[Rfam]
Shown here is a 308-nucleotide RNA sequence from Ophiocordyceps australis, a member of the family "Group I catalytic intron".
RNA sequence: AAGAAACUUUACUCGGCCUAAGCAAAAGUGAACCUUUUGCUAAACAUCAUCAAAUUGCGGAAACUCCUUAAAGCUAUUUUAACUAAAUGUAUUAAGUAAUUAAUUCAUGGCUUAGGUAAUGACUCAAGGUAUAGUAAAAUCAAAAUAGAUGCUCGAAAGUAAAUAGGCUAUCCGCAGCCAAGACCGACUACUGUAGAUUUCGAGGGGAAAUUCAGUAGGGUGCAGUUCAUCGACUAAACGGUGGUGGGUGUUAAAAUCUUUAGAUUUUAAUGCUUAAGAUAUAGUCAGACCCAACUUGAAAAAGUAUA
Numbered sequence: 001a002a003g004a005a006a007c008u009u010u011a012c013u014c015g016g017c018c019u020a021a022g023c024a025a026a027a028g029u030g031a032a033c034c035u036u037u038u039g040c041u042a043a044a045c046a047u048c049a050u051c052a053a054a055u056u057g058c059g060g061a062a063a064c065u066c067c068u069u070a071a072a073g074c075u076a077u078u079u080u081a082a083c084u085a086a087a088u089g090u091a092u093u094a095a096g097u098a099a100u101u102a103a104u105u106c107a108u109g110g111c112u113u114a115g116g117u118a119a120u121g122a123c124u125c126a127a128g129g130u131a132u133a134g135u136a137a138a139a140u141c142a143a144a145a146u147a148g149a150u151g152c153u154c155g156a157a158a159g160u161a162a163a164u165a166g167g168c169u170a171u172c173c174g175c176a177g178c179c180a181a182g183a184c185c186g187a188c189u190a191c192u193g194u195a196g197a198u199u200u201c202g203a204g205g206g207g208a209a210a211u212u213c214a215g216u217a218g219g220g221u222g223c224a225g226u227u228c229a230u231c232g233a234c235u236a237a238a239c240g241g242u243g244g245u246g247g248g249u250g251u252u253a254a255a256a257u258c259u260u261u262a263g264a265u266u267u268u269a270a271u272g273c274u275u276a277a278g279a280u281a282u283a284g285u286c287a288g289a290c291c292c293a294a295c296u297u298g299a300a301a302a303a304g305u306a307u308a
Stems, first nucleotide, its partner, number of pairs: 001008001045246005051240001056176006066167003177226002182221001184219002189217005230287001232286005248273009294305004
Rfam 15.1 lists 5,602 matches to the family in 1,395 species.
The base pairs follow the family's consensus structure, which is taken from published work.
On this family, see Cech, Annu Rev Biochem 1990: "Self-splicing of group I introns".